[Rfam]
RNA sequence: CUCUUAUCCAGAGUGGCAGAGGGACAGGCCCGAUGACGCCCGGCAACCCCCGGACUUGGCAAUUUCGACAAGUCUUGGAAGGUGCUAAUUCCUGCAGAAACAGAUGUUUCUGAGAGAUGAGAG
Numbered sequence: 001c002u003c004u005u006a007u008c009c010a011g012a013g014u015g016g017c018a019g020a021g022g023g024a025c026a027g028g029c030c031c032g033a034u035g036a037c038g039c040c041c042g043g044c045a046a047c048c049c050c051c052g053g054a055c056u057u058g059g060c061a062a063u064u065u066c067g068a069c070a071a072g073u074c075u076u077g078g079a080a081g082g083u084g085c086u087a088a089u090u091c092c093u094g095c096a097g098a099a100a101c102a103g104a105u106g107u108u109u110c111u112g113a114g115a116g117a118u119g120a121g122a123g
Base pairs, nucleotide, nucleotide: 001123002122003121004120005119006118007117008116013041015040016039017038021031022030023029025094026093027092028091042086043085044084045083047082048081049078050077052075053074054073055072056071057070058069090115095112096111097110098109099108100107

Background: A member of the RNA family "SAM riboswitch aptamer (S box leader)" from Sporolactobacillus putidus, 123 nucleotides long. The organism belongs to Sporolactobacillus, within Bacteria. Gene Ontology term of the family: regulation of gene expression. It scores 88 bits against the family's covariance model.